sodF sRNA: an 89-nucleotide sequence from Streptomyces sp. ISL-1.
By type it is a small RNA.
[Rfam]
RNA sequence: GCGUCCUGCUCGUGAUCGUCUUCUCAACCUUCACGUGCGGGCGGAAUGACGAAGGACCCCCGCGAGGACGUGACUCGCGGGGGUCCUUC
Dot-bracket structure: .((.(((((.(((((..((.......))..))))).))))))).......((((((((((((((((.......))))))))))))))))